This 194-nucleotide part of an RNA from Thermothielavioides terrestris belongs to the Rfam family "Ascomycota telomerase RNA". It is annotated as a non-coding RNA gene. Pairs were carried over by alignment from the consensus structure. The organism belongs to Thermothielavioides terrestris, within Eukaryota. Gene Ontology terms of the family: telomerase catalytic core complex, telomere maintenance via telomerase and telomerase activity. On this family, see Qi et al., Nucleic Acids Res 2013: "The common ancestral core of vertebrate and fungal telomerase RNAs".

RNA sequence: AACACCCCGUGUCUCGCUGUGCCUUCGGGUGCCGAGCACUCCCUCCCUCCGCCGGGUCUGAAAGAACGAUUUUCGGCUGGAGAUGACAGCGCGGUUUUUGAGGACGUCUUUUGUCCGUGCGGUACCGCCCUCCUUGGUCGGCUCCGCCUACUCGGCGGUCGGCAGUGGAGAGGAAUCAAAAACUAGUCCCAGUU
Dot-bracket structure: ........(((.((((....(((....)))..)))))))......((((((((((((((....)...)).).)))).)))))..).................(((((.(((((..............((((((.....(.((..((.((.(...).)).)))).).)))).))...)))))))..)))......